[Rfam]
RNA sequence: ACUGAGGCCACAUGCUUCUUUAUAUCCCCAUACGAUUACUUUGCUAUGGAAUGUAAGGAAGUGUGUGGUUUCGGC
Numbered sequence: 001a002c003u004g005a006g007g008c009c010a011c012a013u014g015c016u017u018c019u020u021u022a023u024a025u026c027c028c029c030a031u032a033c034g035a036u037u038a039c040u041u042u043g044c045u046a047u048g049g050a051a052u053g054u055a056a057g058g059a060a061g062u063g064u065g066u067g068g069u070u071u072c073g074g075c
Stems, first nucleotide, its partner, number of pairs: 007069019028049005